RNA sequence: UCAAAGGCUCUUUUAAGAGCCACCCAUCAUAUCAUCUAAAGAGUCU
Number, nucleotide and partner (000 for none) at each position: 001u000002c000003a000004a000005a000006g021007g020008c019009u018010c017011u016012u000013u000014u000015a000016a011017g010018a009019g008020c007021c006022a000023c000024c000025c000026a000027u000028c000029a000030u000031a000032u000033c000034a000035u000036c000037u000038a000039a000040a000041g000042a000043g000044u000045c000046u000
RNA: Histone 3' UTR stem-loop
Organism: Onychostoma macrolepis